The record is a 67-nucleotide RNA from Salibacterium salarium, which matches "Bacillaceae-1 RNA" in Rfam.
[Rfam]
Nucleotides: 067
Stems, first nucleotide, its partner, number of pairs: 011049001013047004025039005054066004
Number, partner (000 for none) and nucleotide at each position: 001000a002000a003000a004000a005000g006000a007000a008000g009000a010000a011049g012000a013047u014046c015045g016044g017000a018000u019000a020000a021000a022000a023000g024000c025039g026038g027037c028036a029035c030000g031000u032000c033000c034000u035029g036028u037027g038026c039025c040000a041000a042000c043000g044016c045015c046014g047013a048000c049011c050000u051000g052000a053000c054066c055065c056064g057063c058000a059000u060000c061000c062000u063057g064056c065055g066054g067000a